The record is a 203-nucleotide RNA from Oryza nivara, which matches "MIR812 microRNA precursor family" in Rfam. Rfam 15.1 lists 57,451 matches to the family in 24 species. It scores 96 bits against the family's covariance model. Taxonomically the source falls in Oryza (Eukaryota, Tracheophyta, Poales, Oryzinae).
[Rfam]
Nucleotides: 203
Base pairs, nucleotide, nucleotide: 027182028181029180030179031178032177034175035174036173037172038171039170040169042167043166044165045164046163049160050159051158052157053156054155
Number, partner (000 for none) and nucleotide at each position: 001000u002000u003000c004000a005000a006000g007000u008000g009000c010000a011000g012000u013000u014000g015000u016000a017000a018000a019000u020000u021000u022000u023000c024000g025000u026000a027182u028181c029180c030179a031178a032177u033000a034175u035174u036173u037172g038171a039170c040169c041000g042167u043166c044165c045164g046163u047000c048000a049160u050159a051158u052157u053156u054155g055000u056000a057000a058000a059000a060000u061000u062000u063000a064000u065000g066000a067000a068000a069000a070000a071000a072000a073000u074000a075000a076000a077000a078000a079000a080000g081000u082000c083000a084000c085000a086000u087000g088000c089000a090000u091000a092000a093000a094000a095000c096000a097000c098000u099000u100000u101000u102000c103000a104000u105000a106000u107000a108000u109000a110000u111000u112000u113000u114000a115000u116000c117000a118000u119000c120000u121000a122000a123000u124000a125000a126000u127000a128000a129000c130000a131000a132000a133000a134000a135000u136000a137000c138000u139000a140000a141000u142000c143000a144000u145000a146000a147000a148000a149000a150000u151000a152000u153000u154000u155054c156053a157052a158051a159050u160049a161000a162000c163046a164045c165044g166043g167042a168000g169040g170039g171038u172037u173036a174035a175034a176000c177032g178031u179030u180029g181028g182027a183000c184000a185000c186000a187000u188000a189000a190000a191000c192000c193000c194000a195000c196000a197000u198000a199000u200000c201000c202000a203000c